[Rfam]
Background:
Rfam assigns this 75-nucleotide RNA from Drosophila pseudoobscura to the family "Small nucleolar RNA CD11". For this family Rfam cites "Genome-wide analyses of two families of snoRNA genes from Drosophila melanogaster, demonstrating the extensive utilization of introns for coding of snoRNAs" (Huang et al., RNA, 2005).
RNA sequence: UAUCCCUUUCGUGAUGAAUGAUUUAACAGAAGAGUUCUUGAAGACUAUAUUCAUCACCCAAUUCUGAAGUGAUUC
Number, nucleotide and partner (000 for none) at each position: 001u071002a070003u069004c000005c000006c000007u000008u000009u000010c000011g000012u000013g000014a000015u000016g000017a000018a000019u000020g000021a000022u000023u000024u000025a000026a000027c000028a000029g037030a036031a035032g000033a000034g000035u031036u030037c029038u000039u000040g000041a000042a000043g000044a000045c000046u000047a000048u000049a000050u000051u000052c000053a000054u000055c000056a000057c000058c000059c000060a000061a000062u000063u000064c000065u000066g000067a000068a000069g003070u002071g001072a000073u000074u000075c000

Lineage of the source: Eukaryota > Arthropoda > Insecta > Eumetabola > Drosophila pseudoobscura. Rfam's curators put it in the seed alignment. The family has 26 seed sequences and 53 matches in Rfam 15.1.